Shown here is a 114-nucleotide RNA sequence from Peribacillus psychrosaccharolyticus, a member of the family "BsrF".

RNA sequence: GCGAUGAGCUAAUUUGCGUAAGACGCGAGACACUAAGCUUCGGCUUAACGUAGGGAUGUGGCCCAACGGUCUUUCGCCGCAAACGCAUCAGACGCCUGCAUUUAUGCAGGCGUC
Numbered sequence: 001g002c003g004a005u006g007a008g009c010u011a012a013u014u015u016g017c018g019u020a021a022g023a024c025g026c027g028a029g030a031c032a033c034u035a036a037g038c039u040u041c042g043g044c045u046u047a048a049c050g051u052a053g054g055g056a057u058g059u060g061g062c063c064c065a066a067c068g069g070u071c072u073u074u075c076g077c078c079g080c081a082a083a084c085g086c087a088u089c090a091g092a093c094g095c096c097u098g099c100a101u102u103u104a105u106g107c108a109g110g111c112g113u114c
Stems, first nucleotide, its partner, number of pairs: 014082005024076002027073005049068002053064002091114009